Shown here is a 78-nucleotide RNA sequence from Actinomadura litoris, a member of the family "6C RNA". A reference for the family is Weinberg et al. (2007), "Identification of 22 candidate structured RNAs in bacteria using the CMfinder comparative genomics pipeline", Nucleic Acids Res. The family's consensus secondary structure is taken from published work. Rfam classes the family as a cis-regulatory element.

RNA sequence: GACGGGCCGGCUCUACCCCCCCCGGAGCCGGACCGUUACGGCGACCCCCGCUAUCCCCCCCGGCGGGGGUCGCCAAGA
Numbered sequence: 001g002a003c004g005g006g007c008c009g010g011c012u013c014u015a016c017c018c019c020c021c022c023c024g025g026a027g028c029c030g031g032a033c034c035g036u037u038a039c040g041g042c043g044a045c046c047c048c049c050g051c052u053a054u055c056c057c058c059c060c061c062g063g064c065g066g067g068g069g070u071c072g073c074c075a076a077g078a
Stems, first nucleotide, its partner, number of pairs: 002036004007031007040074013